[Rfam]
RNA: MIR1515 microRNA precursor family
Organism: Glycine max
RNA sequence: UGUUCAUCAUUUUGCGUGCAAUGAUCUGAACCAUUUUGAUUCCCUGCACCGUUAUUUCGUUGUGGCAUAAUCAAAUUAAGCCAUUGAUUUUAUGUUUGUGGAAAACGUUUCUGAUCACUCACGCAAAAUGAUGUCAA
Numbered sequence: 001u002g003u004u005c006a007u008c009a010u011u012u013u014g015c016g017u018g019c020a021a022u023g024a025u026c027u028g029a030a031c032c033a034u035u036u037u038g039a040u041u042c043c044c045u046g047c048a049c050c051g052u053u054a055u056u057u058c059g060u061u062g063u064g065g066c067a068u069a070a071u072c073a074a075a076u077u078a079a080g081c082c083a084u085u086g087a088u089u090u091u092a093u094g095u096u097u098g099u100g101g102a103a104a105a106c107g108u109u110u111c112u113g114a115u116c117a118c119u120c121a122c123g124c125a126a127a128a129u130g131a132u133g134u135c136a137a
Stems, first nucleotide, its partner, number of pairs: 001136002005133014020119001022117005028111003032107001034105003041102003048095002057087003062084005068078004